[Rfam]
RNA sequence: UAAUUCUUUCGGGGCAGGGUGAAAUUCCCAACCGGCGGUUAAAGCCCGCGACCUGUACGCGAUUUUAUCGCGUACGGCUGAUUCAGUGCAAAUCUGAAGCCGACAGUCAGAGUCUGGAUGGGAGAGAGAAUGA
Dot-bracket structure: ..((((((((......(((.......))).[[((((((.....[[))))...((((.................))))....(((((.......)))))]])).(((.....]]))).......))))))))..

The record is a 133-nucleotide RNA from Lacicoccus alkaliphilus, which matches "FMN riboswitch aptamer (RFN element)" in Rfam. Its family is annotated with FMN binding in the Gene Ontology.